[Rfam]
RNA: mir-9223 microRNA precursor family
RNA sequence: GGCAGUUAUUGGGUGACACACCCCAGAAUCAGGCUUCCUCCUCUCUAAUUCCGGGUGCAUCACCUGCGAACCACC
Numbered sequence: 001g002g003c004a005g006u007u008a009u010u011g012g013g014u015g016a017c018a019c020a021c022c023c024c025a026g027a028a029u030c031a032g033g034c035u036u037c038c039u040c041c042u043c044u045c046u047a048a049u050u051c052c053g054g055g056u057g058c059a060u061c062a063c064c065u066g067c068g069a070a071c072c073a074c075c
Base pairs, nucleotide, nucleotide: 002074005071006070007069010066011065012064013063014062015061016060019057020056021055022054023053026051027050028049029048031046032045033044